RNase MRP: a 263-nucleotide RNA from Donacobius atricapilla. A search with the family's covariance model found it, with a score of 69 bits. The base pairs follow the family's consensus structure, which is taken from published work. RNase MRP is an enzymatically active ribonucleoprotein with two distinct roles in eukaryotes. Taxonomically the source falls in Donacobius (Eukaryota, Bilateria, Dipnotetrapodomorpha, Archosauria).

[Rfam]
RNA sequence: GGAUGUUCUAAAGACCUGCUCACCAGGCCAUGCACGGAGGACCUCGGUUCCCCAUGGGCCCCACACCCACCCAGGGAAAAAUCCUCAGACCGCCAGCAGAGAGUGUCGGGUGCUGACGUGCCUGUGCCCGCUGCCCCAUGCCACCCUCUGUUGAGACACCUGCGGGCCGAGCAGGUGAGUGCAAGGCAGGCCCUUGUCACAGCCACAGACACGCAGGCGGCGCGGCAGGUGCGCUAACAGAACGGGGCUCACUCUCAGGCUUU
Numbered sequence: 001g002g003a004u005g006u007u008c009u010a011a012a013g014a015c016c017u018g019c020u021c022a023c024c025a026g027g028c029c030a031u032g033c034a035c036g037g038a039g040g041a042c043c044u045c046g047g048u049u050c051c052c053c054a055u056g057g058g059c060c061c062c063a064c065a066c067c068c069a070c071c072c073a074g075g076g077a078a079a080a081a082u083c084c085u086c087a088g089a090c091c092g093c094c095a096g097c098a099g100a101g102a103g104u105g106u107c108g109g110g111u112g113c114u115g116a117c118g119u120g121c122c123u124g125u126g127c128c129c130g131c132u133g134c135c136c137c138a139u140g141c142c143a144c145c146c147u148c149u150g151u152u153g154a155g156a157c158a159c160c161u162g163c164g165g166g167c168c169g170a171g172c173a174g175g176u177g178a179g180u181g182c183a184a185g186g187c188a189g190g191c192c193c194u195u196g197u198c199a200c201a202g203c204c205a206c207a208g209a210c211a212c213g214c215a216g217g218c219g220g221c222g223c224g225g226c227a228g229g230u231g232c233g234c235u236a237a238c239a240g241a242a243c244g245g246g247g248c249u250c251a252c253u254c255u256c257a258g259g260c261u262u263u
Stems, first nucleotide, its partner, number of pairs: 003263001005261001007259003011255001015217005023075002026071002037052001039050004080249001083247004096106003108129006131190002136186002139183003143180002146177001148174004159166002220234005